[Rfam]
A member of the RNA family "Small nucleolar RNA SNORD2" from Sorex araneus, 69 nucleotides long. The family's RNA type in Rfam is C/D-box small nucleolar RNA. The family has 17 seed sequences and 1,116 matches in Rfam 15.1. For this family Rfam cites "Identification of a novel box C/D snoRNA from mouse nucleolar cDNA library" (Zhou et al., Gene, 2004). Pairs were carried over by alignment from the consensus structure, which was predicted with WAR. NCBI's taxonomy places the organism under Eukaryota, Euteleostomi, Dipnotetrapodomorpha, Tetrapoda, Sorex.
RNA sequence: AUGUGAAAUAUGGGCUAUCAUCUUUCAAUACUGACUUGAAAUAUAGAGAAUACUCAUUGCUAGUCAUAU
Dot-bracket structure: ((((((.........................................................))))))